[Rfam]
RNA sequence: GGGUGGCGGGAUGCGGGGCCGGGACGCUGUCUGAGAGGCCUCUAUGAAUCUCACAGUGAACCGGUCUCUUUUCCAGCUCCUCA
Number, nucleotide and partner (000 for none) at each position: 001g000002g000003g000004u000005g000006g077007c076008g000009g074010g073011a000012u000013g000014c000015g068016g067017g066018g065019c064020c063021g062022g000023g000024a000025c058026g057027c056028u055029g054030u053031c000032u000033g052034a051035g050036a000037g000038g000039c000040c000041u000042c000043u000044a000045u000046g000047a000048a000049u000050c035051u034052c033053a030054c029055a028056g027057u026058g025059a000060a000061c000062c021063g020064g019065u018066c017067u016068c015069u000070u000071u000072u000073c010074c009075a000076g007077c006078u000079c000080c000081u000082c000083a000
This 83-nucleotide RNA sequence from Austrofundulus limnaeus belongs to the Rfam family "mir-128 microRNA precursor family". The match comes from Rfam's covariance-model search (80 bits). The base pairs follow the family's consensus structure, which was predicted with RNAalifold. Its family is annotated with RISC complex and miRNA-mediated post-transcriptional gene silencing in the Gene Ontology. For this family Rfam cites "The developmental miRNA profiles of zebrafish as determined by small RNA cloning" (Chen et al., Genes Dev, 2005).